The family of this 120-nucleotide RNA sequence from Salvia splendens is "U5 spliceosomal RNA". About the family: U5 RNA is a component of both types of known spliceosome.
RNA sequence: AGCCGCGCGUUGAGCACAUAGCGAACUAUUCUUUCGCCUUUUACUAAAGAAUACCGUGUGCUCGUCGCUUAUAAGCGGCAUACGCCUUUUUUUGGAGGGGUGUUUCUGAAAAGGAAUCCC
Number, nucleotide and partner (000 for none) at each position: 001a000002g000003c078004c077005g076006c075007g000008c067009g066010u000011u064012g063013a062014g061015c060016a059017c058018a057019u000020a000021g000022c000023g000024a000025a000026c000027u053028a052029u051030u050031c049032u048033u047034u046035c000036g000037c000038c000039u000040u000041u000042u000043a000044c000045u000046a034047a033048a032049g031050a030051a029052u028053a027054c000055c000056g000057u018058g017059u016060g015061c014062u013063c012064g011065u000066c009067g008068c000069u000070u000071a000072u000073a000074a000075g006076c005077g004078g003079c000080a000081u000082a000083c000084g000085c000086c000087u000088u000089u000090u000091u000092u000093u000094g000095g000096a000097g000098g120099g119100g118101u000102g000103u115104u114105u113106c000107u000108g000109a000110a000111a000112a000113g105114g104115a103116a000117u000118c100119c099120c098